[Rfam]
The record is a 75-nucleotide RNA sequence from Streptomyces zinciresistens, which matches "ASpks TB sRNA" in Rfam.
A search with the family's covariance model found it, with a score of 84 bits.
It is annotated as an antisense RNA.

RNA sequence: CUUGACGGAGCCCAGCCACAGCGGCCGGUCCUGCGCGCGGCCCUGGCCGUAGGUGGCCAGCAGUGCCUGCGCCUC
Numbered sequence: 001c002u003u004g005a006c007g008g009a010g011c012c013c014a015g016c017c018a019c020a021g022c023g024g025c026c027g028g029u030c031c032u033g034c035g036c037g038c039g040g041c042c043c044u045g046g047c048c049g050u051a052g053g054u055g056g057c058c059a060g061c062a063g064u065g066c067c068u069g070c071g072c073c074u075c
Base pairs, nucleotide, nucleotide: 015025016024017023038065039064043060044059045058047056048055049054